[Rfam]
RNA sequence: UGGAACAGUGAUGACCAUUGAUGGUAUCUGGAUCUUGAGCAGUGAAUGGUUCCUGUCUGGAACUCUGCGGUCCAA
Numbered sequence: 001u002g003g004a005a006c007a008g009u010g011a012u013g014a015c016c017a018u019u020g021a022u023g024g025u026a027u028c029u030g031g032a033u034c035u036u037g038a039g040c041a042g043u044g045a046a047u048g049g050u051u052c053c054u055g056u057c058u059g060g061a062a063c064u065c066u067g068c069g070g071u072c073c074a075a
Base pairs, nucleotide, nucleotide: 002073003072004071006069